[Rfam]
RNA sequence: UGAACGGGCUGCUCAGUAGUUGGUGUAGGAUCUGUCUGAACAAACCAACAGCUACAUCUGAUUACUGGGUCUCCUGCAACAUCU
Numbered sequence: 001u002g003a004a005c006g007g008g009c010u011g012c013u014c015a016g017u018a019g020u021u022g023g024u025g026u027a028g029g030a031u032c033u034g035u036c037u038g039a040a041c042a043a044a045c046c047a048a049c050a051g052c053u054a055c056a057u058c059u060g061a062u063u064a065c066u067g068g069g070u071c072u073c074c075u076g077c078a079a080c081a082u083c084u
Stems, first nucleotide, its partner, number of pairs: 013068006020061003023057006032051004
The family of this 84-nucleotide RNA sequence from Varanus komodoensis is "mir-221 microRNA precursor family". NCBI's taxonomy places the organism under Eukaryota, Sauria, Lepidosauria, Varanidae, Varanus. It scores 66 bits against the family's covariance model. Gene Ontology terms of the family: RISC complex and miRNA-mediated post-transcriptional gene silencing.